[Rfam]
mir-1302 microRNA precursor family: a 52-nucleotide sequence from Ictidomys tridecemlineatus. Pairs were carried over by alignment from the consensus structure, which was predicted with WAR.
RNA sequence: CUUUCAAUAAAAGUAUGUCCUAUUCAAUAUUUGGGACAUACUUAUGCUAAAA
Numbered sequence: 001c002u003u004u005c006a007a008u009a010a011a012a013g014u015a016u017g018u019c020c021u022a023u024u025c026a027a028u029a030u031u032u033g034g035g036a037c038a039u040a041c042u043u044a045u046g047c048u049a050a051a052a
Base pairs, nucleotide, nucleotide: 006048008046009045011043012042014040015039016038018036019035020034021033022031
Background:
The sequence is in the family's curated seed alignment. The source organism's lineage runs through Eukaryota, Chordata, Dipnotetrapodomorpha, Marmotini and Ictidomys. Rfam 15.1 lists 16,160 matches to the family in 135 species.